Shown here is a 105-nucleotide RNA from Prunus avium, a member of the family "MIR6274 microRNA precursor family". The match comes from Rfam's covariance-model search (93 bits). Its family is annotated with miRNA-mediated post-transcriptional gene silencing and RISC complex in the Gene Ontology. NCBI's taxonomy places the organism under Eukaryota, Viridiplantae, Mesangiospermae, Pentapetalae, Prunus.
RNA sequence: GUAUAACACUGUUUUGCUAUCUUCGGCCAAUAACACAAUGACAUGUGGAAAAGUUAUCCUACGUGUCAUUGCGUUAUUGGCCGGACAUAGCAAAAAGAGUUAUCC
Numbered sequence: 001g002u003a004u005a006a007c008a009c010u011g012u013u014u015u016g017c018u019a020u021c022u023u024c025g026g027c028c029a030a031u032a033a034c035a036c037a038a039u040g041a042c043a044u045g046u047g048g049a050a051a052a053g054u055u056a057u058c059c060u061a062c063g064u065g066u067c068a069u070u071g072c073g074u075u076a077u078u079g080g081c082c083g084g085a086c087a088u089a090g091c092a093a094a095a096a097g098a099g100u101u102a103u104c105c
Stems, first nucleotide, its partner, number of pairs: 003103003012095009022085013036071013050057001